Rfam assigns this 133-nucleotide RNA sequence from Actibacterium lipolyticum to the family "FMN riboswitch aptamer (RFN element)". Pairs were carried over by alignment from the consensus structure, which is taken from published work.

[Rfam]
RNA sequence: AGCCGUUCUCGGGGCGGGGUGAAAUUCCCCACCGGCGGUUAUAGUCCGCGAGCGCCCUUGCCGAUGUAAGGGGUCAGCAGAGCCGGUGAAAUUCCGGGACCGACGGUUAAAGUCCGGAUGGAAGAGGAUGGUC
Numbered sequence: 001a002g003c004c005g006u007u008c009u010c011g012g013g014g015c016g017g018g019g020u021g022a023a024a025u026u027c028c029c030c031a032c033c034g035g036c037g038g039u040u041a042u043a044g045u046c047c048g049c050g051a052g053c054g055c056c057c058u059u060g061c062c063g064a065u066g067u068a069a070g071g072g073g074u075c076a077g078c079a080g081a082g083c084c085g086g087u088g089a090a091a092u093u094c095c096g097g098g099a100c101c102g103a104c105g106g107u108u109a110a111a112g113u114c115c116g117g118a119u120g121g122a123a124g125a126g127g128a129u130g131g132u133c
Stems, first nucleotide, its partner, number of pairs: 003131008017029003031113002033102002035049004044100002052078002083097004104116003